[Rfam]
RNA sequence: GAAGGUCCCGCAAUGGCACUGCAUGAAUUCACGGUUGUUAUACAGUGCCGUGCAUCCAGUAGUUCCAUACCGGGCUCGUCGUCC
Numbered sequence: 001g002a003a004g005g006u007c008c009c010g011c012a013a014u015g016g017c018a019c020u021g022c023a024u025g026a027a028u029u030c031a032c033g034g035u036u037g038u039u040a041u042a043c044a045g046u047g048c049c050g051u052g053c054a055u056c057c058a059g060u061a062g063u064u065c066c067a068u069a070c071c072g073g074g075c076u077c078g079u080c081g082u083c084c
Stems, first nucleotide, its partner, number of pairs: 007074004013068004018063005025056002028054001030052001032050003036044002

mir-228 microRNA precursor family: an 84-nucleotide RNA from Angiostrongylus costaricensis. The match comes from Rfam's covariance-model search (53 bits). NCBI's taxonomy places the organism under Eukaryota, Metazoa, Rhabditomorpha, Strongyloidea, Angiostrongylus.